[Rfam]
Record summary
The record is a 261-nucleotide part of an RNA from Bisgaardia hudsonensis, which matches "Bacterial large subunit ribosomal RNA" in Rfam. Its family is annotated with structural constituent of ribosome and ribosome in the Gene Ontology. Taxonomically the source falls in Bisgaardia (Bacteria, Pseudomonadota, Pasteurellales, Pasteurellaceae). The family's consensus secondary structure is taken from published work. A search with the family's covariance model found it, with a score of 2822 bits.
RNA sequence: GGAGAAUUGAUUGGGGCUGCUCCUAGUACGAGAGGACCGGAGUGGACGCAUCACUGGUGUUCCAGUUGUCUCGCCAGAGGCACUGCUGGGUAGCUACAUGCGGAAGAGAUAAGUGCUGAAAGCAUCUAAGCACGAAACUUGCCAAGAGAUGAGUUCUCCCAGACUAAAAGUCUGUAAGGGUUGUUGGAGACUACGACGUAGAUAGGCUGGGUGUGUAAGUGUUGUGAGACAUUGAGCUAACCAGUACUAAUUGCCCGAGAG
Numbered sequence: 001g002g003a004g005a006a007u008u009g010a011u012u013g014g015g016g017c018u019g020c021u022c023c024u025a026g027u028a029c030g031a032g033a034g035g036a037c038c039g040g041a042g043u044g045g046a047c048g049c050a051u052c053a054c055u056g057g058u059g060u061u062c063c064a065g066u067u068g069u070c071u072c073g074c075c076a077g078a079g080g081c082a083c084u085g086c087u088g089g090g091u092a093g094c095u096a097c098a099u100g101c102g103g104a105a106g107a108g109a110u111a112a113g114u115g116c117u118g119a120a121a122g123c124a125u126c127u128a129a130g131c132a133c134g135a136a137a138c139u140u141g142c143c144a145a146g147a148g149a150u151g152a153g154u155u156c157u158c159c160c161a162g163a164c165u166a167a168a169a170g171u172c173u174g175u176a177a178g179g180g181u182u183g184u185u186g187g188a189g190a191c192u193a194c195g196a197c198g199u200a201g202a203u204a205g206g207c208u209g210g211g212u213g214u215g216u217a218a219g220u221g222u223u224g225u226g227a228g229a230c231a232u233u234g235a236g237c238u239a240a241c242c243a244g245u246a247c248u249a250a251u252u253g254c255c256c257g258a259g260a261g
Stems, first nucleotide, its partner, number of pairs: 001159008011145004017045007047102005055096003062089005067082006106140003113133005162172003175258001178256004182198005203249003206245005213237001219232005